A member of the RNA family "mir-3085 microRNA precursor family" from Oryctolagus cuniculus, 87 nucleotides long. The family's consensus secondary structure was predicted with RNAalifold. Its family is annotated with miRNA-mediated post-transcriptional gene silencing and RISC complex in the Gene Ontology.

RNA sequence: CGCCCUGCCCUGGGAAGGUGCCAUUCCGAGGGCCAGGGUCUGAUUUUGUGUUGCUCUGGCUGCUAUGGCCCCUCCCAGGGCCUGGGC
Numbered sequence: 001c002g003c004c005c006u007g008c009c010c011u012g013g014g015a016a017g018g019u020g021c022c023a024u025u026c027c028g029a030g031g032g033c034c035a036g037g038g039u040c041u042g043a044u045u046u047u048g049u050g051u052u053g054c055u056c057u058g059g060c061u062g063c064u065a066u067g068g069c070c071c072c073u074c075c076c077a078g079g080g081c082c083u084g085g086g087c
Stems, first nucleotide, its partner, number of pairs: 003086003007082001008080008018071001020069005031061009040050001